[Rfam]
This 85-nucleotide RNA from Aspergillus calidoustus belongs to the Rfam family "tRNA".
Lineage of the source: Eukaryota > Ascomycota > leotiomyceta > Eurotiomycetes > Aspergillus subgen. Nidulantes.
A search with the family's covariance model found it, with a score of 50 bits.
RNA sequence: GUCUCCGUGGCGUAGCUGGCUAGCGCAUACGACUGUUAACUGGCUGAUAAUCGUAAGGUCGUCAGUUCGAUCCUGACCGGGGACG
Numbered sequence: 001g002u003c004u005c006c007g008u009g010g011c012g013u014a015g016c017u018g019g020c021u022a023g024c025g026c027a028u029a030c031g032a033c034u035g036u037u038a039a040c041u042g043g044c045u046g047a048u049a050a051u052c053g054u055a056a057g058g059u060c061g062u063c064a065g066u067u068c069g070a071u072c073c074u075g076a077c078c079g080g081g082g083a084c085g
Base pairs, nucleotide, nucleotide: 001084002083003082004081005080006079007078010026011025012024013023028055029054030053031052032051061077062076063075064074065073